[Rfam]
This 83-nucleotide sequence from Streptomyces sp. HGB0020 belongs to the Rfam family "ZMP/ZTP riboswitch aptamer (pfl RNA motif)".

RNA sequence: CCGCGGGCCGUGACUGGCGCUGAGGUGGAGCACCACCGGGGAGCGGCCACGCAGAGUCGAUGCCGUGCGCCUGGGCGAUCCGG
Numbered sequence: 001c002c003g004c005g006g007g008c009c010g011u012g013a014c015u016g017g018c019g020c021u022g023a024g025g026u027g028g029a030g031c032a033c034c035a036c037c038g039g040g041g042a043g044c045g046g047c048c049a050c051g052c053a054g055a056g057u058c059g060a061u062g063c064c065g066u067g068c069g070c071c072u073g074g075g076c077g078a079u080c081c082g083g
Stems, first nucleotide, its partner, number of pairs: 006048006014040002016071005025036004061077004

Lineage of the source: Bacteria > Actinomycetota > Actinomycetes > Streptomycetaceae > Streptomyces. The base pairs follow the family's consensus structure, which is taken from published work.